[Rfam]
A member of the RNA family "Glycine riboswitch aptamer" from Sphingomonas aliaeris, 102 nucleotides long.
RNA sequence: UGGGCACGCGCGGGAGAGCGCGGGCGGUUCUUUCAGGAUCGACCCGCCGCCGAAGGAGCAACCGCCCCGGAAUCUCUCAGGCAACCGGACCGCGCGGGCUUA
Numbered sequence: 001u002g003g004g005c006a007c008g009c010g011c012g013g014g015a016g017a018g019c020g021c022g023g024g025c026g027g028u029u030c031u032u033u034c035a036g037g038a039u040c041g042a043c044c045c046g047c048c049g050c051c052g053a054a055g056g057a058g059c060a061a062c063c064g065c066c067c068c069g070g071a072a073u074c075u076c077u078c079a080g081g082c083a084a085c086c087g088g089a090c091c092g093c094g095c096g097g098g099c100u101u102a
Base pairs, nucleotide, nucleotide: 007096008095009094010093011092012091013090020047021046022045023044049082050081051080052078053077056076057075058074062070063069